The family of this 75-nucleotide RNA sequence from Anopheles gambiae is "mir-305 microRNA precursor family".

RNA sequence: CAUGUCUAUUGUACUUCAUCAGGUGCUCUGGUGGAUUUGAGAAAACCCGGCACAUGUUGGAGUACACUCUAUGUG
Dot-bracket structure: ((((.....(((.(((((.((.(((((..((..............)).))))).)).))))).))).....))))
Numbered sequence: 001c002a003u004g005u006c007u008a009u010u011g012u013a014c015u016u017c018a019u020c021a022g023g024u025g026c027u028c029u030g031g032u033g034g035a036u037u038u039g040a041g042a043a044a045a046c047c048c049g050g051c052a053c054a055u056g057u058u059g060g061a062g063u064a065c066a067c068u069c070u071a072u073g074u075g
Stems, first nucleotide, its partner, number of pairs: 001075004010066003014062005020056002023053005030047002
It is one of the family's seed sequences. Gene Ontology terms of the family: RISC complex and miRNA-mediated post-transcriptional gene silencing.